[Rfam]
A member of the RNA family "Bacterial RNase P class A" from Bdellovibrio sp. NC01, 384 nucleotides long. The organism belongs to Bdellovibrio, within Bacteria. Pairs were carried over by alignment from the consensus structure, which is taken from published work. It scores 219 bits against the family's covariance model.
RNA sequence: UCGGUUUUGCGGAUAAUUGCUCUAAUAAUAUUCUAAAUUAUUGAAAUUAGAGAGGAAAGUCCGGACUCCAUAUGGCAGCGCAAAGGGUAACGCCCUUCUACAGUAAUGUAAGGAACAGUGGAACAGAGAGAAUGUCCGGGGCAUUGAGCCUGACACCGGGAACGGGAGGGUCAGGGGAGCCGCUGGAGUGAAAACAGCCAAACUCUGCGCGGAGCAAGAUCAAAUAGGGUAACACUAGUAGGGCGGCCAGCCCGUAGUUACCGGGUAAGAUCGCUUGAGGGUGUCAGUAAUGGCACUCCCAGAGGAAUGAUUAUCUACAGUGAACGGGACAAUUAUGGGACCUGGUUACUGGGACAGAAUCCGGCUUACAGCAAAACCGACAUC
Numbered sequence: 001u002c003g004g005u006u007u008u009g010c011g012g013a014u015a016a017u018u019g020c021u022c023u024a025a026u027a028a029u030a031u032u033c034u035a036a037a038u039u040a041u042u043g044a045a046a047u048u049a050g051a052g053a054g055g056a057a058a059g060u061c062c063g064g065a066c067u068c069c070a071u072a073u074g075g076c077a078g079c080g081c082a083a084a085g086g087g088u089a090a091c092g093c094c095c096u097u098c099u100a101c102a103g104u105a106a107u108g109u110a111a112g113g114a115a116c117a118g119u120g121g122a123a124c125a126g127a128g129a130g131a132a133u134g135u136c137c138g139g140g141g142c143a144u145u146g147a148g149c150c151u152g153a154c155a156c157c158g159g160g161a162a163c164g165g166g167a168g169g170g171u172c173a174g175g176g177g178a179g180c181c182g183c184u185g186g187a188g189u190g191a192a193a194a195c196a197g198c199c200a201a202a203c204u205c206u207g208c209g210c211g212g213a214g215c216a217a218g219a220u221c222a223a224a225u226a227g228g229g230u231a232a233c234a235c236u237a238g239u240a241g242g243g244c245g246g247c248c249a250g251c252c253c254g255u256a257g258u259u260a261c262c263g264g265g266u267a268a269g270a271u272c273g274c275u276u277g278a279g280g281g282u283g284u285c286a287g288u289a290a291u292g293g294c295a296c297u298c299c300c301a302g303a304g305g306a307a308u309g310a311u312u313a314u315c316u317a318c319a320g321u322g323a324a325c326g327g328g329a330c331a332a333u334u335a336u337g338g339g340a341c342c343u344g345g346u347u348a349c350u351g352g353g354a355c356a357g358a359a360u361c362c363g364g365c366u367u368a369c370a371g372c373a374a375a376a377c378c379g380a381c382a383u384c
Stems, first nucleotide, its partner, number of pairs: 001380010011369001012315007020052007057367003061364005066214004073249004078210005083097005098112001099110004113205002118203002120199002218272004228262006241253004279298008